[Rfam]
RNA sequence: ACACCCUUCUACUCAGGUUGCCGCAUCUCCUGAGCUGUUGGGGUAGGCCGGUCGGCUCUGGCGUUAAAGUGGAUUCCUCGUGCCACUGCCAGAAUGCCGUCCGGCCAUUUU
Number, nucleotide and partner (000 for none) at each position: 001a000002c000003a044004c043005c042006c041007u040008u000009c000010u000011a000012c034013u033014c032015a031016g030017g029018u000019u000020g000021c000022c000023g000024c000025a000026u000027c000028u000029c017030c016031u015032g014033a013034g012035c000036u000037g000038u000039u000040g007041g006042g005043g004044u003045a000046g106047g105048c104049c103050g102051g101052u000053c099054g098055g097056c096057u000058c000059u000060g000061g000062c000063g000064u000065u000066a000067a000068a000069g000070u000071g000072g000073a000074u000075u000076c000077c000078u000079c000080g000081u000082g000083c000084c000085a000086c000087u000088g000089c000090c000091a000092g000093a000094a000095u000096g056097c055098c054099g053100u000101c051102c050103g049104g048105c047106c046107a000108u000109u000110u000111u000
Shown here is a 111-nucleotide sequence from Nitratireductor aestuarii, a member of the family "EcpR1". A reference for the family is Robledo et al. (2015), "A stress-induced small RNA modulates alpha-rhizobial cell cycle progression", PLoS Genet. Rfam's curators write: Perviously named SmelC291, SmrC10, or Sra33. According to its overproduction phenotype it was renamed Elongated Cell Phenotype RNA1. Induced by stress,EcpR1 negatively regulates cell cycle master regulatory genes dnaA and gcrA at post-transcriptional level by base pairing between its strongly conserved GC-rich loop and the target mRNAs. A search with the family's covariance model found it, with a score of 65 bits.